[Rfam]
RNA: Lysine riboswitch aptamer
Organism: Enterococcus columbae
RNA sequence: CUUUGAAGUAGAGGUCGCGGUUUUUAUUACCCCUGUGGAGUCAAGCAAGACGGUGAAACAGGUCUAGGAAAAAUCGCCGAAACCUUCUUUUGUUGCUUAAAAAGAAGCGUUGGGGUGCAAGCGAAUAGUUUGCACACUGUCUUAGUUAAACUAAGGUGAGCUAUGUUUAGU
Dot-bracket structure: .....(.((((.....(((((((((......(((((.....................)))))......)))))))))...(((((((((((........)))))))).)))((.((((((((.....)))))))).)).(((((((...)))))))....)))).).....
Numbered sequence: 001c002u003u004u005g006a007a008g009u010a011g012a013g014g015u016c017g018c019g020g021u022u023u024u025u026a027u028u029a030c031c032c033c034u035g036u037g038g039a040g041u042c043a044a045g046c047a048a049g050a051c052g053g054u055g056a057a058a059c060a061g062g063u064c065u066a067g068g069a070a071a072a073a074u075c076g077c078c079g080a081a082a083c084c085u086u087c088u089u090u091u092g093u094u095g096c097u098u099a100a101a102a103a104g105a106a107g108c109g110u111u112g113g114g115g116u117g118c119a120a121g122c123g124a125a126u127a128g129u130u131u132g133c134a135c136a137c138u139g140u141c142u143u144a145g146u147u148a149a150a151c152u153a154a155g156g157u158g159a160g161c162u163a164u165g166u167u168u169a170g171u
Stems, first nucleotide, its partner, number of pairs: 006166001008164004017077009032062005081111003084107008112138002115135008140156007